The record is a 38-nucleotide RNA from Morus notabilis, which matches "Plastid psbT antisense RNA" in Rfam.
The match comes from Rfam's covariance-model search (50 bits).
The base pairs follow the family's consensus structure, which was predicted with LocARNA.
From the family's description: Plastid-psbT-asRNA is an antisense RNA (asRNA) motif reported in Plastids It has been shown that psbT expression is controlled by two antisense RNAs originated from psbN transcription by the nuclear-encoded polymerase (NEP), in which the short antisense RNA hybridizes to psbT CDS, thereby stabilizing psbT transcript while blocking its translation during photooxidative stress.
RNA sequence: GUAGUUGGAUCUCCAAGUUUUUAGAUUGCUCCAAAUUU
Dot-bracket structure: ..(.((((....)))).).(((.((....)).)))...